[Rfam]
RNA: GEBRO RNA
RNA sequence: CGUCCGGUUUUCGGCGGGAAAUGUUUUUAAGGGCUAGAUAGAAUAAAUACAUUUAAGAUGAUACACUUCAGACUUGAAAGAGAGUUGACAAAAGUAUCCGCACGUUGCUGACGGGUUAAUAAGCAAUAGGGCGAAAGUAGGUAAAGUGACACCCCAAGACCUUCAAAAUGACACUCCCUAAAAGUGUCGGGCUAAGUCCUUAUAAAAGGAUAUGUCAAAACGGGGCGAGGUAGGCUGAUAGCGACGUGACGAGGACACGAACAAGACCCGAAAGGGUAGCAGGUAGGGCAUGCAGACGCCUGUAAAAAGUUCGUUCAAGACUUGAGAUAGUCUUGAAGUUUUAACCC
Dot-bracket structure: ......((((((....)))))).....................................(((((......((((........)))).......))))).....[[[[[[...(((((((..]]]]]]........................((((..............((((((.......)))))).(((...(((((......)))))..))).....))))...............................((((((...((((....)))).((((((.............)))))).....))))))(((((((........)))))))....)))))))